[Rfam]
RNA sequence: ACAGGCUCAGGGCCACAACAGAAGCACUCAUGGUGAGGCACUGUCAGAUUACAAGGAAUCUGUGAAUUUUGCU
Numbered sequence: 001a002c003a004g005g006c007u008c009a010g011g012g013c014c015a016c017a018a019c020a021g022a023a024g025c026a027c028u029c030a031u032g033g034u035g036a037g038g039c040a041c042u043g044u045c046a047g048a049u050u051a052c053a054a055g056g057a058a059u060c061u062g063u064g065a066a067u068u069u070u071g072c073u
Base pairs, nucleotide, nucleotide: 010041012039013038014037017073019071020070021069022068023067025035026034045062046061047060048059049058050057